[Rfam]
RNA sequence: GGGGUCAUAGCUCAGCUGGUUAGAGCGCUACGUUGACAUCGUAGAGGCCACAGGUUCAAGUCCUGUUGACCCCA
Number, nucleotide and partner (000 for none) at each position: 001g073002g072003g071004g070005u069006c068007a067008u000009a000010g026011c025012u024013c023014a000015g000016c000017u000018g000019g000020u000021u000022a000023g013024a012025g011026c010027g000028c044029u043030a042031c041032g040033u000034u000035g000036a000037c000038a000039u000040c032041g031042u030043a029044g028045a000046g000047g000048c000049c000050a066051c065052a064053g063054g062055u000056u000057c000058a000059a000060g000061u000062c054063c053064u052065g051066u050067u007068g006069a005070c004071c003072c002073c001074a000